RNA sequence: UCUGGCAGGAAUGACACUCUUACCCUUGCUGAGAGUGCUGUUCAGUAAUGAGAGCGUUUUGAAGUACUUAACUUGUUCUGAGUGAGG
Numbered sequence: 001u002c003u004g005g006c007a008g009g010a011a012u013g014a015c016a017c018u019c020u021u022a023c024c025c026u027u028g029c030u031g032a033g034a035g036u037g038c039u040g041u042u043c044a045g046u047a048a049u050g051a052g053a054g055c056g057u058u059u060u061g062a063a064g065u066a067c068u069u070a071a072c073u074u075g076u077u078c079u080g081a082g083u084g085a086g087g
Stems, first nucleotide, its partner, number of pairs: 001087003005083002
RNA: Small nucleolar RNA SNORD103/SNORD85
Organism: Herpetotheres cachinnans